[Rfam]
RNA sequence: CGGUUGACCCCGUAGUGCUGGCGGACCCCCGACCUGGCAGCACUGCGGGGCUUCCUU
Dot-bracket structure: .((....(((((((((((((.(.............).)))))))))))))....)).
A member of the RNA family "F6 TB sRNA" from Actinophytocola xanthii, 57 nucleotides long. The family's RNA type in Rfam is small RNA. The family's consensus secondary structure is taken from published work. The match comes from Rfam's covariance-model search (60 bits). Taxonomically the source falls in Actinophytocola (Bacteria, Bacillati, Actinomycetota, Pseudonocardiaceae). For this family Rfam cites "Identification of small RNAs in Mycobacterium tuberculosis" (Arnvig and Young, Mol Microbiol, 2009).